[Rfam]
RNA sequence: GUCCAUGAUUAGUUAGUCCACAUAAUUGAGAUGUGGUUGGUCUCAAGUCCCUGUUUUCCAGGGAGAACCUACUUGAGGAUGCUACAUCAAAGCAUGAAAUCAGUGGAAAUCUCUGAGGC
Numbered sequence: 001g002u003c004c005a006u007g008a009u010u011a012g013u014u015a016g017u018c019c020a021c022a023u024a025a026u027u028g029a030g031a032u033g034u035g036g037u038u039g040g041u042c043u044c045a046a047g048u049c050c051c052u053g054u055u056u057u058c059c060a061g062g063g064a065g066a067a068c069c070u071a072c073u074u075g076a077g078g079a080u081g082c083u084a085c086a087u088c089a090a091a092g093c094a095u096g097a098a099a100u101c102a103g104u105g106g107a108a109a110u111c112u113c114u115g116a117g118g119c
Stems, first nucleotide, its partner, number of pairs: 001119003049063005
A member of the RNA family "Small nucleolar RNA Z278" from Olea europaea, 119 nucleotides long. The family's RNA type in Rfam is C/D-box small nucleolar RNA. NCBI's taxonomy places the organism under Eukaryota, Streptophyta, Tracheophyta, eudicotyledons, Olea europaea. Rfam 15.1 lists 1,130 matches to the family in 214 species. The match comes from Rfam's covariance-model search (60 bits). On this family, see Chen et al., Nucleic Acids Res 2003: "The high diversity of snoRNAs in plants: identification and comparative study of 120 snoRNA genes from Oryza sativa".